[Rfam]
RNA sequence: ACAACGAAAGGCAAAACCUGCUGGAAAGUAGGGGCUGAAAGUUACGGGUUCAGAACGGAUCGCCGGACUACCGAA
Numbered sequence: 001a002c003a004a005c006g007a008a009a010g011g012c013a014a015a016a017c018c019u020g021c022u023g024g025a026a027a028g029u030a031g032g033g034g035c036u037g038a039a040a041g042u043u044a045c046g047g048g049u050u051c052a053g054a055a056c057g058g059a060u061c062g063c064c065g066g067a068c069u070a071c072c073g074a075a
Stems, first nucleotide, its partner, number of pairs: 012037002017032006040069004045065003048060003
About this RNA
c-di-GMP-I riboswitch aptamer: a 75-nucleotide sequence from a Bathymodiolus platifrons methanotrophic gill symbiont. NCBI's taxonomy places the organism under Bacteria, Pseudomonadati, Pseudomonadota, Gammaproteobacteria. Its family is annotated with cyclic-di-GMP binding in the Gene Ontology.